Notes
A member of the RNA family "RNase MRP" from Camphora micrantha, 241 nucleotides long. A reference for the family is Walker and Avis (2005), "Secondary structure probing of the human RNase MRP RNA reveals the potential for MRP RNA subsets", Biochem Biophys Res Commun. Lineage of the source: Eukaryota > Streptophytina > Embryophyta > Mesangiospermae > Camphora. By type it is a ribozyme. The match comes from Rfam's covariance-model search (77 bits). Clan: RNaseP clan.
RNA sequence: CAUGUGCGAGACGAGUGGUUCGGUAAUGGGUCGGCGACCCGAACCGAGGAAAGUCCCCGGGCCCACUAGUGCAGAGAUGCGGCGUCCGAAAGGAUGAGUUCUGAUCUGAGUCGACUCGCCAUGAGCGAGGGCUGAGACACGUGUGGAGCCUGUGUUGACUCGGACAGAACGCUUGGCCUACUUCAACAGUUAUCCACUCAAUCCGUUGGAUCUACAGAACGGGGCUUAUGAUCUCGUACAC
Numbered sequence: 001c002a003u004g005u006g007c008g009a010g011a012c013g014a015g016u017g018g019u020u021c022g023g024u025a026a027u028g029g030g031u032c033g034g035c036g037a038c039c040c041g042a043a044c045c046g047a048g049g050a051a052a053g054u055c056c057c058c059g060g061g062c063c064c065a066c067u068a069g070u071g072c073a074g075a076g077a078u079g080c081g082g083c084g085u086c087c088g089a090a091a092g093g094a095u096g097a098g099u100u101c102u103g104a105u106c107u108g109a110g111u112c113g114a115c116u117c118g119c120c121a122u123g124a125g126c127g128a129g130g131g132c133u134g135a136g137a138c139a140c141g142u143g144u145g146g147a148g149c150c151u152g153u154g155u156u157g158a159c160u161c162g163g164a165c166a167g168a169a170c171g172c173u174u175g176g177c178c179u180a181c182u183u184c185a186a187c188a189g190u191u192a193u194c195c196a197c198u199c200a201a202u203c204c205g206u207u208g209g210a211u212c213u214a215c216a217g218a219a220c221g222g223g224g225c226u227u228a229u230g231a232u233c234u235c236g237u238a239c240a241c
Stems, first nucleotide, its partner, number of pairs: 003240008013199006020047005027041006051227003055224004070081004083096005099169003107162006117154003129151004139144001201211004
Dot-bracket structure: ..((((((((..((((((.(((((..((((((...)))))).)))))...[[[.[[[[...........((((....)))).(((((....)))))..(((.....((((((....(((.........((((......(....)...)))))))..))))))....)))........................)))))).((((...)))).........]]]]]]].....)))))))).